[Rfam]
Nucleotides: 293
Base pairs, nucleotide, nucleotide: 002039003038004023005022006021007020008019009018011016028037029036030035043293044291045290046289047288048287049286050285051284053283056280057279058278059277060276061274062273063272064271065268066267067266068265069264070263072262073261074257075256077254080251081250083249085246086245087244088242094240095239096238097237098236099235100234101233102229103228105227106226107225108224109223111220112219113218114217115216116215117214118213119212120159121158122157123156125154126153129150130149131148132147133146134145135144136143137142160165167210168209169208170207171206177202178201179200180199185194186193187192
Number, partner (000 for none) and nucleotide at each position: 001000a002039c003038u004023g005022g006021g007020c008019g009018g010000g011016u012000u013000a014000g015000c016011g017000a018009c019008c020007g021006c022005c023004u024000g025000u026000g027000g028037c029036c030035c031000g032000a033000g034000c035030g036029g037028g038003a039002g040000c041000a042000g043293a044291g045290a046289g047288a048287g049286g050285u051284g052000u053283g054000g055000a056280c057279a058278u059277g060276g061274g062273g063272c064271g065268c066267c067266g068265u069264g070263u071000u072262g073261g074257g075256g076000c077254c078000u079000u080251c081250g082000g083249g084000g085246g086245c087244g088242u089000g090000u091000g092000g093000a094240g095239g096238g097237c098236c099235u100234g101233c102229c103228c104000a105227c106226u107225c108224c109223a110000a111220a112219c113218c114217c115216g116215g117214a118213g119212u120159c121158g122157c123156c124000a125154g126153c127000g128000g129150g130149a131148u132147c133146c134145g135144g136143c137142c138000g139000g140000a141000g142137g143136g144135c145134u146133g147132g148131g149130u150129u151000g152000a153126g154125c155000g156123g157122g158121u159120g160165u161000u162000a163000c164000a165160g166000a167210g168209g169208g170207g171206g172000g173000c174000a175000c176000c177202g178201c179200g180199u181000c182000a183000g184000g185194c186193g187192g188000g189000c190000g191000a192187c193186c194185g195000a196000g197000c198000a199180g200179c201178g202177c203000u204000c205000a206171c207170c208169c209168c210167c211000c212119g213118c214117u215116c216115u217114g218113g219112g220111u221000a222000g223109u224108g225107g226106a227105g228103g229102g230000a231000c232000a233101g234100c235099g236098g237097g238096u239095c240094u241000g242088a243000a244087u245086g246085u247000u248000a249083c250081c251080g252000u253000u254077g255000a256075u257074c258000a259000c260000c261073c262072c263070g264069c265068a266067u267066g268065g269000c270000a271064u272063g273062c274061u275000c276060c277059c278058g279057u280056g281000g282000a283053c284051c285050a286049c287048c288047u289046c290045u291044c292000c293043u

The family of this 293-nucleotide RNA sequence from Ceratodon purpureus is "Plant signal recognition particle RNA". By type it is a non-coding RNA gene. The literature on the family includes a 2002 paper in Curr Opin Struct Biol by Wild et al., "Towards the structure of the mammalian signal recognition particle".